[Rfam]
RNA sequence: CUCGAUAAAGGCAAACCAUAAGCAAUUGUGGGACGCAAAGUAAAGGGUCUUUUUUAGCAUACAGGGAAGUAUGGUGGGACGAUAGGGAAAAGUCCUUUUUUUAAUGUUGUAGGGAAAUAGGCAUAAUAAGACAGCCUUACUGCCGAAA
Numbered sequence: 001c002u003c004g005a006u007a008a009a010g011g012c013a014a015a016c017c018a019u020a021a022g023c024a025a026u027u028g029u030g031g032g033a034c035g036c037a038a039a040g041u042a043a044a045g046g047g048u049c050u051u052u053u054u055u056a057g058c059a060u061a062c063a064g065g066g067a068a069g070u071a072u073g074g075u076g077g078g079a080c081g082a083u084a085g086g087g088a089a090a091a092g093u094c095c096u097u098u099u100u101u102u103a104a105u106g107u108u109g110u111a112g113g114g115a116a117a118u119a120g121g122c123a124u125a126a127u128a129a130g131a132c133a134g135c136c137u138u139a140c141u142g143c144c145g146a147a148a
Stems, first nucleotide, its partner, number of pairs: 003145002011036002016031006034134001039141004044137003047132005

Notes:
A member of the RNA family "c-di-GMP-I-GGC riboswitch aptamer" from Candidatus Brocadia sinica, 148 nucleotides long. Lineage of the source: Bacteria > Planctomycetota > Candidatus Brocadiales > Candidatus Brocadia > Candidatus Brocadia sinica.